[Rfam]
RNA sequence: CGCUGUACGUGUUCACAGUGGACCUUGAUUUAUUGUAUUUCAAUUAAGGCACGCGGUGAAUGCCAACAGCA
Numbered sequence: 001c002g003c004u005g006u007a008c009g010u011g012u013u014c015a016c017a018g019u020g021g022a023c024c025u026u027g028a029u030u031u032a033u034u035g036u037a038u039u040u041c042a043a044u045u046a047a048g049g050c051a052c053g054c055g056g057u058g059a060a061u062g063c064c065a066a067c068a069g070c071a
Stems, first nucleotide, its partner, number of pairs: 003069004009063008018054003023049008
Notes: The family of this 71-nucleotide sequence from Danio rerio is "mir-124 microRNA precursor family". The literature on the family includes a 2003 paper in Genome Biol by Lai et al., "Computational identification of Drosophila microRNA genes". Rfam's curators put it in the seed alignment. Taxonomically the source falls in Danio (Eukaryota, Eumetazoa, Bilateria, Teleostomi). The base pairs follow the family's consensus structure, which was predicted with PFOLD.